[Rfam]
RNA sequence: GACAGCGACUGGCGCACAAGAGGUGGAGUGCACCACCGGGGAGCAGAACCGGCCGGCACCGCGCGCCUGGGUGCCGUCC
Numbered sequence: 001g002a003c004a005g006c007g008a009c010u011g012g013c014g015c016a017c018a019a020g021a022g023g024u025g026g027a028g029u030g031c032a033c034c035a036c037c038g039g040g041g042a043g044c045a046g047a048a049c050c051g052g053c054c055g056g057c058a059c060c061g062c063g064c065g066c067c068u069g070g071g072u073g074c075c076g077u078c079c
Stems, first nucleotide, its partner, number of pairs: 003046001005044002009040002011067005023036004056074005
Dot-bracket structure: ..[.[[..[[(((((.......((((......))))..]]..]].].........[[[[[..)))))..]]]]].....

A member of the RNA family "ZMP/ZTP riboswitch aptamer (pfl RNA motif)" from a Propionibacteriales bacterium, 79 nucleotides long. It scores 41 bits against the family's covariance model. Gene Ontology terms of the family: one-carbon metabolic process and regulation of purine nucleotide biosynthetic process. The family's consensus secondary structure is taken from published work.